[Rfam]
Nucleotides: 257
Stems, first nucleotide, its partner, number of pairs: 001012003043057004076191001079188002081161004085096004099124005106117003126153003132145005163185003167182005192211002195207004231257004236252004
Number, partner (000 for none) and nucleotide at each position: 001012u002011u003010g004000c005000g006000c007000a008000g009000a010003u011002g012001a013000u014000a015000g016000u017000u018000c019000a020000g021000u022000c023000a024000g025000c026000a027000a028000u029000c030000u031000u032000c033000g034000c035000a036000a037000u038000c039000c040000u041000c042000u043057g044056u045055c046054g047000c048000g049000c050000u051000g052000c053000c054046c055045g056044a057043c058000g059000u060000a061000a062000g063000a064000u065000u066000c067000u068000c069000u070000c071000c072000a073000g074000u075000u076191u077000c078000a079188c080187g081161g082160c083159c084158c085096g086095g087094a088093c089000a090000c091000a092000u093088g094087u095086c096085c097000a098000a099124c100123c101122g102121a103120c104000c105000c106117g107116c108115c109000c110000a111000a112000u113000c114000a115108g116107g117106c118000g119000c120103g121102u122101c123100g124099g125000c126153g127152c128151c129000g130000c131000c132145g133144a134143a135142c136141c137000c138000a139000c140000c141136g142135g143134u144133u145132c146000g147000a148000g149000c150000a151128g152127g153126c154000c155000c156000c157000c158084g159083g160082g161081u162000c163185c164184g165183c166000a167182c168181u169180g170179c171178c172000c173000a174000a175000c176000c177000a178171g179170g180169c181168a182167g183165g184164c185163g186000a187080c188079g189000a190000a191076a192211g193210c194000a195207g196206c197205g198204a199000c200000a201000c202000a203000a204198u205197c206196g207195c208000c209000a210193g211192c212000a213000c214000a215000g216000g217000a218000c219000g220000a221000a222000u223000u224000a225000c226000c227000c228000c229000g230000a231257g232256a233255g234254g235000a236252g237251g238250c239249c240000c241000a242000u243000g244000g245000a246000a247000c248000g249239g250238g251237c252236c253000u254234c255233c256232u257231u
Shown here is a 257-nucleotide RNA from Pseudomonas sp. FeS53a, a member of the family "Pseudomonas sRNA P24". A search with the family's covariance model found it, with a score of 136 bits. This small RNA (sRNA) was computationally identified in the genome of the opportunistic pathogen Pseudomonas aeruginosa and its expression verified by Northern blot analysis. P24 is conserved across several Pseudomonas species and in Azotobacter vinelandii. It appears to be consistently located between a hypothetical protein gene and a transcriptional regulator gene (AsnC family) in the genomes of all these species. P24 has a predicted Rho independent terminator at the 3' end but the function of P24 is unknown.